Shown here is a 62-nucleotide RNA sequence from Lactiplantibacillus plantarum, a member of the family "Bacillus-plasmid RNA".
Rfam 15.1 lists 155 matches to the family in 128 species.
The source organism's lineage runs through Bacteria, Bacillota, Bacilli, Lactobacillales and Lactiplantibacillus.
The sequence is in the family's curated seed alignment.
The family's consensus secondary structure is taken from published work.
By type it is a small RNA.
[Rfam]
RNA sequence: GUAGUCAACGGUACCGGAACGACCAACGGGAGCGAGGAUAAGGAGUUGACUAGCUAACUAAA
Numbered sequence: 001g002u003a004g005u006c007a008a009c010g011g012u013a014c015c016g017g018a019a020c021g022a023c024c025a026a027c028g029g030g031a032g033c034g035a036g037g038a039u040a041a042g043g044a045g046u047u048g049a050c051u052a053g054c055u056a057a058c059u060a061a062a
Stems, first nucleotide, its partner, number of pairs: 001054001002052008